Rfam assigns this 397-nucleotide RNA from Iodidimonas nitroreducens to the family "Bacterial RNase P class A". Rfam's curators write: Ribonuclease P (RNase P) is a ubiquitous endoribonuclease, found in archaea, bacteria and eukarya as well as chloroplasts and mitochondria. Gene Ontology terms of the family: ribonuclease P activity, dimeric ribonuclease P complex and tRNA processing.
[Rfam]
Nucleotides: 397
Stems, first nucleotide, its partner, number of pairs: 001393010011382001012337007020042002023039006047380003051377005056237004064271004069233005074088005089103001090101004104228002109226002111222003126168002128164007136156001176194006195217001196215004201210003241294004251285006262278005301320008
Number, partner (000 for none) and nucleotide at each position: 001393c002392c003391a004390g005389a006388u007387g008386g009385c010384c011382g012337g013336a014335c015334g016333g017332c018331c019000g020042c021041g022000c023039g024038a025037u026036c027035c028034g029000c030000u031000u032000g033000g034028c035027g036026g037025a038024u039023u040000u041021c042020g043000a044000g045000g046000a047380a048379a049378g050000u051377c052376c053375g054374g055373g056237c057236u058235c059234c060000a061000c062000a063000a064271a065270g066269a067268u068000a069233c070232g071231g072230u073229g074088c075087c076086g077085g078084g079000u080000a081000a082000c083000g084078c085077c086076c087075g088074g089103c090101g091100a092099a093098g094000g095000u096000g097000a098093c099092u100091u101090c102000a103089g104228g105227g106000a107000c108000a109226g110225u111222g112221c113220c114000a115000c116000a117000g118000a119000a120000a121000g122000u123000a124000a125000a126168c127167c128164g129163c130162c131161c132160g133159g134158c135000c136156c137000c138000c139000u140000g141000c142000c143000u144000u145000g146000c147000a148000g149000g150000a151000c152000c153000a154000u155000g156136g157000u158134g159133c160132c161131g162130g163129g164128u165000a166000a167127g168126g169000g170000u171000g172000a173000a174000a175000g176194g177193g178192u179191g180190c181189g182000g183000u184000a185000a186000g187000a188000g189181c190180g191179c192178a193177c194176c195217g196215c197214c198213g199212c200000g201210u202209u203208g204000g205000u206000a207000a208203c209202a210201g211000g212199g213198c214197g215196g216000g217195c218000a219000u220113g221112g222111u223000a224000a225110a226109c227105c228104c229073c230072a231071c232070c233069g234059g235058g236057a237056g238000c239000a240000a241294g242293a243292u244291c245000g246000a247000a248000u249000a250000g251285g252284g253283a254282c255281g256280g257000c258000a259000u260000a261000u262278g263277g264276c265275c266274u267000u268067g269066u270065c271064u272000u273000u274266g275265g276264g277263c278262c279000g280256u281255c282254g283253u284252c285251c286000g287000g288000g289000u290000u291244g292243a293242u294241c295000g296000c297000u298000u299000g300000a301320g302319g303318c304317u305316g306315u307314c308313g309000g310000c311000a312000a313308c314307g315306g316305c317304a318303g319302c320301c321000c322000u323000a324000g325000a326000g327000g328000a329000a330000u331018g332017g333016u334015c335014g336013u337012c338000g339000c340000c341000c342000u343000g344000u345000u346000u347000g348000g349000u350000u351000g352000c353000g354000a355000u356000c357000a358000a359000a360000c361000a362000g363000g364000g365000g366000c367000a368000c369000a370000g371000a372000a373055c374054c375053c376052g377051g378049c379048u380047u381000a382011c383000a384010g385009g386008c387007c388006a389005u390004c391003u392002g393001g394000c395000g396000c397000a